[Rfam]
RNA sequence: UCACAAAGCAUUGCACCCAGAAUCUGGUCUACCAGAUAUUGUACCUGGAGCUUUUUCUUUUUAUAAUUAAAAUGUUUU
Numbered sequence: 001u002c003a004c005a006a007a008g009c010a011u012u013g014c015a016c017c018c019a020g021a022a023u024c025u026g027g028u029c030u031a032c033c034a035g036a037u038a039u040u041g042u043a044c045c046u047g048g049a050g051c052u053u054u055u056u057c058u059u060u061u062u063a064u065a066a067u068u069a070a071a072a073u074g075u076u077u078u
Stems, first nucleotide, its partner, number of pairs: 005054005017048004022037005
RNA: U1A polyadenylation inhibition element (PIE)
Organism: Mola mola